[Rfam]
RNA sequence: CUCACCGAUACGAAAUAUGCCUUCUCAAUCAGCUCUACCACCUCUGUAGAUGUAGGUGAAUAGAGGGGAAAGGAAGGCAAGAAGAAAUUAUCUCAUGAGCGUUACCUCAUACCUUCCAAUGACAAUUCAGUGGUCUUGGUGGGUAACUGCGCGAGUGAGACAUCU
Number, nucleotide and partner (000 for none) at each position: 001c000002u000003c000004a000005c000006c000007g000008a000009u000010a000011c000012g000013a000014a000015a000016u000017a000018u000019g078020c077021c000022u075023u074024c000025u000026c000027a000028a000029u000030c000031a000032g000033c065034u064035c000036u062037a061038c000039c058040a057041c056042c055043u054044c000045u000046g000047u000048a000049g000050a000051u000052g000053u000054a043055g042056g041057u040058g039059a000060a000061u037062a036063g000064a034065g033066g000067g000068g000069a000070a000071a000072g000073g000074a023075a022076g000077g020078c019079a000080a000081g000082a000083a000084g000085a000086a000087a000088u000089u000090a000091u000092c159093u158094c157095a156096u155097g000098a000099g152100c151101g150102u000103u000104a000105c000106c000107u000108c000109a000110u000111a000112c143113c142114u141115u000116c139117c138118a137119a136120u000121g135122a134123c133124a000125a000126u000127u000128c000129a000130g000131u000132g000133g123134u122135c121136u119137u118138g117139g116140u000141g114142g113143g112144u000145a000146a000147c000148u000149g000150c101151g100152c099153g000154a000155g096156u095157g094158a093159g092160a000161c000162a000163u000164c000165u000
Small nucleolar RNA snR8: a 165-nucleotide sequence from Zygosaccharomyces rouxii. The organism belongs to Zygosaccharomyces, within Eukaryota. It scores 95 bits against the family's covariance model. The family's RNA type in Rfam is H/ACA-box small nucleolar RNA. Clan: SNORA56 clan. On this family, see Parker et al., Mol Cell Biol 1988: "Genetic analysis of small nuclear RNAs in Saccharomyces cerevisiae: viable sextuple mutant". The family's consensus secondary structure was predicted with WAR.